[Rfam]
Background:
A member of the RNA family "mir-5928 microRNA precursor family" from Haemonchus placei, 75 nucleotides long. It scores 61 bits against the family's covariance model.
RNA sequence: AGCACAAAUUUUAAGUAGAAUAGUUGGGUAUGGUCAGCUGAUCCUACUAAUCUACUCUACCUAAAGUUCGUCCCU
Numbered sequence: 001a002g003c004a005c006a007a008a009u010u011u012u013a014a015g016u017a018g019a020a021u022a023g024u025u026g027g028g029u030a031u032g033g034u035c036a037g038c039u040g041a042u043c044c045u046a047c048u049a050a051u052c053u054a055c056u057c058u059a060c061c062u063a064a065a066g067u068u069c070g071u072c073c074c075u
Base pairs, nucleotide, nucleotide: 002073004071005070007068008067009066011064012063013062015060016059017058018057019056021054022053023052025050027048028047029046030045032043033042034041035040